Background: This 59-nucleotide RNA sequence belongs to the Rfam family "Glutamine-II riboswitch aptamer". Pairs were carried over by alignment from the consensus structure, which is taken from published work. The sequence is in the family's curated seed alignment.
RNA sequence: CAACGUUCACCUUGCUUCUGCAAGGCGCAGAUCACCAGGCCAAGGAACGGGGACCUGGA
Numbered sequence: 001c002a003a004c005g006u007u008c009a010c011c012u013u014g015c016u017u018c019u020g021c022a023a024g025g026c027g028c029a030g031a032u033c034a035c036c037a038g039g040c041c042a043a044g045g046a047a048c049g050g051g052g053a054c055c056u057g058g059a
Stems, first nucleotide, its partner, number of pairs: 004049005010025005035058005040052002